[Rfam]
RNA: Mammalian CPEB3 ribozyme
Organism: Alligator sinensis
RNA sequence: GUUGCAAGUUUGUAGGCCAAAGCAGAAGUGCUCAUGUCAUGGCCUGUCAAUUUCCAACGAAAUCUGCAAAUUCUGCU
Numbered sequence: 001g002u003u004g005c006a007a008g009u010u011u012g013u014a015g016g017c018c019a020a021a022g023c024a025g026a027a028g029u030g031c032u033c034a035u036g037u038c039a040u041g042g043c044c045u046g047u048c049a050a051u052u053u054c055c056a057a058c059g060a061a062a063u064c065u066g067c068a069a070a071u072u073c074u075g076c077u
Stems, first nucleotide, its partner, number of pairs: 015044004021077007028040003048066002050063005